[Rfam]
RNA sequence: AGGUCGUUGUUGCCUAAUUCCGGGCGCGUCGCCCGGGAGCCGGGGACCCAUCGCACAUGGGGUGAAUCCACUUCGGUGGUAGGGAAGCGCUCCCAUGCCCGAACCCGUCAGCUAACCCGGCCGGCAGAGGGAGAGGAACA
Numbered sequence: 001a002g003g004u005c006g007u008u009g010u011u012g013c014c015u016a017a018u019u020c021c022g023g024g025c026g027c028g029u030c031g032c033c034c035g036g037g038a039g040c041c042g043g044g045g046a047c048c049c050a051u052c053g054c055a056c057a058u059g060g061g062g063u064g065a066a067u068c069c070a071c072u073u074c075g076g077u078g079g080u081a082g083g084g085a086a087g088c089g090c091u092c093c094c095a096u097g098c099c100c101g102a103a104c105c106c107g108u109c110a111g112c113u114a115a116c117c118c119g120g121c122c123g124g125c126a127g128a129g130g131g132a133g134a135g136g137a138a139c140a
Stems, first nucleotide, its partner, number of pairs: 011126004018038009039121006049059002060106003068079004082100003
Notes:
Rfam assigns this 140-nucleotide RNA sequence from Nonomuraea zeae to the family "c-di-AMP riboswitch aptamer (ydaO/yuaA leader)". Taxonomically the source falls in Nonomuraea (Bacteria, Actinomycetota, Actinomycetes, Streptosporangiales).